[Rfam]
RNA: Ribosomal protein L10 leader
Organism: Streptococcus sp. zg-36
RNA sequence: AAGGUUUGAAAAAACUGACCUAAGACAGUAGGGGAGCUGGACUCAUAAAUAUCCUACCGAGGCACAAAACGGAUAGAAAACGUAUUUGUACUUUCGUGUCUAGGUUUGGCGCGUUUUUUUAUUGGAACA
Numbered sequence: 001a002a003g004g005u006u007u008g009a010a011a012a013a014a015c016u017g018a019c020c021u022a023a024g025a026c027a028g029u030a031g032g033g034g035a036g037c038u039g040g041a042c043u044c045a046u047a048a049a050u051a052u053c054c055u056a057c058c059g060a061g062g063c064a065c066a067a068a069a070c071g072g073a074u075a076g077a078a079a080a081c082g083u084a085u086u087u088g089u090a091c092u093u094u095c096g097u098g099u100c101u102a103g104g105u106u107u108g109g110c111g112c113g114u115u116u117u118u119u120u121a122u123u124g125g126a127a128c129a
Base pairs, nucleotide, nucleotide: 028057029056030055031054032053033052034044035043036042095113096112097111098110099109100108102106